[Rfam]
RNA sequence: UAGAGCUUUGGAGUGUGACAAUGGUGUUUGUGUCGCUUGCAGUCAAACGCCAUCAUCACACUAAAUAGCUAUAG
Number, nucleotide and partner (000 for none) at each position: 001u000002a000003g000004a000005g000006c000007u000008u000009u000010g000011g000012a062013g061014u060015g059016u058017g057018a056019c000020a000021a053022u052023g051024g050025u049026g048027u047028u046029u045030g044031u000032g000033u000034c000035g000036c000037u000038u000039g000040c000041a000042g000043u000044c030045a029046a028047a027048c026049g025050c024051c023052a022053u021054c000055a000056u018057c017058a016059c015060a014061c013062u012063a000064a000065a000066u000067a000068g000069c000070u000071a000072u000073a000074g000
RNA: mir-122 microRNA precursor family
Organism: Clupea harengus